The family of this 100-nucleotide RNA from Methanosarcina barkeri is "Pyrrolysine insertion sequence 1". Pairs were carried over by alignment from the consensus structure, which was predicted with WAR. Rfam links the family to the GO term pyrrolysine incorporation. For this family Rfam cites "Evidence for the existence in mRNAs of a hairpin element responsible for ribosome dependent pyrrolysine insertion into proteins" (Theobald-Dietrich et al., Biochimie, 2005).
RNA sequence: UAGGGCCCAGAGACCUCCCUGUCCGCUCAGGGAAAUAUUUCCGCUGACUGCGCCGGCGGAAUGACCUGCACGGACAGCCACGAGGUCUCGCAACUAAACG
Dot-bracket structure: .........((((((((......................(((((((.......))))))).....................))))))))...........